[Rfam]
RNA sequence: CAUACGGGGAUUGCGAUCUCCCCGCGAGGCGACAUGCCCAAGUAUCGCGUCCUGAUUCUUCGAAAGGGCGCAGCAUG
Number, nucleotide and partner (000 for none) at each position: 001c000002a000003u000004a000005c024006g023007g022008g021009g020010a019011u000012u000013g000014c000015g000016a000017u000018c000019u010020c009021c008022c007023c006024g005025c000026g000027a000028g000029g000030c000031g000032a000033c000034a000035u000036g000037c000038c000039c000040a000041a000042g000043u000044a000045u000046c000047g071048c070049g069050u068051c067052c066053u000054g000055a000056u000057u000058c000059u000060u000061c000062g000063a000064a000065a000066g052067g051068g050069c049070g048071c047072a000073g000074c000075a000076u000077g000
This 77-nucleotide sequence from Bradyrhizobium sp. STM 3843 belongs to the Rfam family "chrB-a RNA".
The family's RNA type in Rfam is cis-regulatory element.
The family has 163 seed sequences and 347 matches in Rfam 15.1.
The match comes from Rfam's covariance-model search (80 bits).
The base pairs follow the family's consensus structure, which is taken from published work.